[Rfam]
RNA: rpsB sRNA
RNA sequence: CACACGCAAGGGGCGGAACCUGAGCUUAUCGGGGUCCAUCCGGUGGCCGAAAGGAGUGAUCCUCCGGCCCAUACUCCUCUUGCGGAGGUUAAACCGGAAAACUCAGGAGAUUA
Numbered sequence: 001c002a003c004a005c006g007c008a009a010g011g012g013g014c015g016g017a018a019c020c021u022g023a024g025c026u027u028a029u030c031g032g033g034g035u036c037c038a039u040c041c042g043g044u045g046g047c048c049g050a051a052a053g054g055a056g057u058g059a060u061c062c063u064c065c066g067g068c069c070c071a072u073a074c075u076c077c078u079c080u081u082g083c084g085g086a087g088g089u090u091a092a093a094c095c096g097g098a099a100a101a102c103u104c105a106g107g108a109g110a111u112u113a
Stems, first nucleotide, its partner, number of pairs: 001087001003085001005084007015037002019032002022030001045072001